[Rfam]
RNA sequence: CGCAGGCAUGCGCGGGGGUACACUCCAGGUCGCCUUGAGAGGUGGCAGCACCCCGUCGGGGGUGCGGGAUCCUAGAGCCCGGGGCCUGCGUUUCU
Number, nucleotide and partner (000 for none) at each position: 001c090002g089003c088004a087005g086006g085007c084008a000009u000010g000011c082012g000013c081014g080015g079016g078017g000018g000019u000020a000021c000022a000023c077024u076025c075026c000027a073028g072029g046030u045031c044032g043033c042034c041035u040036u000037g000038a000039g000040a035041g034042g033043u032044g031045g030046c029047a000048g000049c064050a063051c062052c061053c000054c000055g000056u000057c000058g000059g000060g000061g052062g051063u050064g049065c000066g000067g000068g000069a000070u000071c000072c028073u027074a000075g025076a024077g023078c016079c015080c014081g013082g011083g000084g007085c006086c005087u004088g003089c002090g001091u000092u000093u000094c000095u000
Shown here is a 95-nucleotide RNA, a member of the family "DUF3800-VII RNA". The family's consensus secondary structure is taken from published work.